Shown here is a 141-nucleotide RNA sequence from Phoenix dactylifera, a member of the family "Small nucleolar RNA snoR138". Rfam links the family to the GO terms RNA processing and nucleolus. It is annotated as an H/ACA-box small nucleolar RNA. The base pairs follow the family's consensus structure, which was predicted with mfold. On this family, see Chen and Wu, Nucleic Acids Res 2009: "Mining small RNA sequencing data: a new approach to identify small nucleolar RNAs in Arabidopsis".

[Rfam]
Nucleotides: 141
Base pairs, nucleotide, nucleotide: 003062004061005060006059007058008057015050017048018047019046020045021044022043024041026040027039073134074133075132076131078129081113084109085108086107088106091103092102093101094100
Number, partner (000 for none) and nucleotide at each position: 001000a002000g003062a004061g005060c006059c007058u008057c009000a010000c011000g012000a013000a014000u015050a016000a017048c018047c019046g020045g021044a022043u023000g024041c025000u026040g027039g028000a029000a030000a031000a032000c033000a034000a035000u036000g037000g038000a039027c040026c041024g042000c043022a044021u045020c046019c047018g048017g049000c050015u051000c052000a053000g054000a055000c056000a057008g058007g059006g060005g061004c062003u063000c064000a065000u066000a067000g068000c069000g070000a071000c072000a073134c074133g075132a076131a077000u078129c079000c080000u081113u082000u083000u084109g085108a086107g087000g088106g089000a090000a091103a092102g093101g094100a095000a096000a097000g098000c099000a100094u101093c102092u103091u104000a105000u106088c107086c108085u109084c110000g111000c112000u113081a114000u115000u116000c117000c118000u119000u120000u121000c122000u123000u124000a125000g126000a127000u128000g129078g130000c131076u132075u133074c134073g135000g136000a137000u138000a139000u140000c141000c